[Rfam]
Shown here is a 54-nucleotide RNA from Coregonus sp. 'balchen', a member of the family "UnaL2 LINE 3' element".
A search with the family's covariance model found it, with a score of 57 bits.
The organism belongs to Coregonus, within Eukaryota.
The literature on the family includes a 2004 paper in RNA by Baba et al., "Solution structure of an RNA stem-loop derived from the 3' conserved region of eel LINE UnaL2".
Rfam classes the family as a cis-regulatory element.
About the family: The eel long interspersed element (LINE) UnaL2 and its partner short interspersed element (SINE) share a conserved 3' tail containing a stem-loop that is critical for their retrotransposition.
The family's consensus secondary structure is taken from published work.

RNA sequence: UGCACUACUAACUGUAAGUCGCUCUGGAUUAAAGCGUCUGCAAAAUGACUAAAA
Numbered sequence: 001u002g003c004a005c006u007a008c009u010a011a012c013u014g015u016a017a018g019u020c021g022c023u024c025u026g027g028a029u030u031a032a033a034g035c036g037u038c039u040g041c042a043a044a045a046u047g048a049c050u051a052a053a054a
Stems, first nucleotide, its partner, number of pairs: 013043001014041003020036004025031001
Dot-bracket structure: ............((((...((((.(.....).))))..))).)...........